[Rfam]
RNA: Acido-Lenti-1 RNA
RNA sequence: CCUAGCACUUGCGUGCUAGGCUGAGUUAUGUCGUCCCCUUGGGACU
Numbered sequence: 001c002c003u004a005g006c007a008c009u010u011g012c013g014u015g016c017u018a019g020g021c022u023g024a025g026u027u028a029u030g031u032c033g034u035c036c037c038c039u040u041g042g043g044a045c046u
Stems, first nucleotide, its partner, number of pairs: 001020008033045005
Dot-bracket structure: ((((((((....))))))))............(((((...))))).